[Rfam]
Nucleotides: 046
Stems, first nucleotide, its partner, number of pairs: 006021006
Number, partner (000 for none) and nucleotide at each position: 001000c002000c003000a004000a005000a006021g007020g008019c009018u010017c011016u012000u013000u014000u015000a016011a017010g018009a019008g020007c021006c022000a023000c024000c025000c026000a027000c028000g029000c030000u031000g032000u033000c034000a035000a036000g037000a038000a039000c040000a041000g042000a043000g044000c045000u046000g